[Rfam]
RNA sequence: AGAAAUAGAGGACGGAACGGGCAGCCGUCGCCCCCGAAAGGGUUAGGAGAUGUGGGAAUCGUCACCCCACCUAUUUCU
Numbered sequence: 001a002g003a004a005a006u007a008g009a010g011g012a013c014g015g016a017a018c019g020g021g022c023a024g025c026c027g028u029c030g031c032c033c034c035c036g037a038a039a040g041g042g043u044u045a046g047g048a049g050a051u052g053u054g055g056g057a058a059u060c061g062u063c064a065c066c067c068c069a070c071c072u073a074u075u076u077c078u
Base pairs, nucleotide, nucleotide: 001078002077003076004075005074006073007072008071011029012028013027014026015025020063021062022061031047032042033041034040052070053069054068055067056066
Rfam assigns this 78-nucleotide RNA to the family "skipping-rope RNA".